[Rfam]
RNA sequence: AUCCCGAGCCGAGACUGGCGCUUAGGUGGAGCACCACCGGGGAGCGGCUCGGCGAUCCCGUCACCGCCGUGCGCCUGGGCAUUCCGC
Numbered sequence: 001a002u003c004c005c006g007a008g009c010c011g012a013g014a015c016u017g018g019c020g021c022u023u024a025g026g027u028g029g030a031g032c033a034c035c036a037c038c039g040g041g042g043a044g045c046g047g048c049u050c051g052g053c054g055a056u057c058c059c060g061u062c063a064c065c066g067c068c069g070u071g072c073g074c075c076u077g078g079g080c081a082u083u084c085c086g087c
Stems, first nucleotide, its partner, number of pairs: 004052008015041002017075005026037004066080003

The family of this 87-nucleotide RNA sequence from Planomonospora parontospora is "ZMP/ZTP riboswitch aptamer (pfl RNA motif)".
Pairs were carried over by alignment from the consensus structure, which is taken from published work.